[Rfam]
The record is a 101-nucleotide RNA sequence from Salisediminibacterium halotolerans, which matches "Guanidine-I riboswitch aptamer" in Rfam. NCBI's taxonomy places the organism under Bacteria, Bacillati, Bacillota, Bacilli, Salisediminibacterium. This family represents a conserved RNA structure found upstream of the ykkC and yxkD genes in Bacillus subtilis and related genes in other bacteria. The literature on the family includes a 2017 paper in Structure by Reiss et al., "Structural Basis for Ligand Binding to the Guanidine-I Riboswitch". The base pairs follow the family's consensus structure.
RNA sequence: AACAAGGUUUUCUAGGGUUCCGUGCGGGGUGCCGCGGGCUGGUCCGAGAGAAAGCCCGCAGCUGAAAAGCUGCGACACGGAGGGAGAAAAGCCCGGGAGAU
Number, nucleotide and partner (000 for none) at each position: 001a000002a000003c000004a000005a000006g000007g055008u054009u053010u052011u051012c050013u000014a000015g045016g044017g000018u000019u000020c042021c041022g039023u036024g035025c034026g033027g032028g000029g000030u000031g000032c027033c026034g025035c024036g023037g000038g000039c022040u000041g021042g020043u000044c016045c015046g000047a000048g000049a000050g012051a011052a010053a009054g008055c007056c000057c074058g073059c072060a071061g070062c069063u068064g000065a000066a000067a000068a063069g062070c061071u060072g059073c058074g057075a000076c096077a000078c099079g000080g000081a000082g094083g093084g092085a000086g000087a000088a000089a000090a000091g000092c084093c083094c082095g000096g076097g000098a000099g078100a000101u000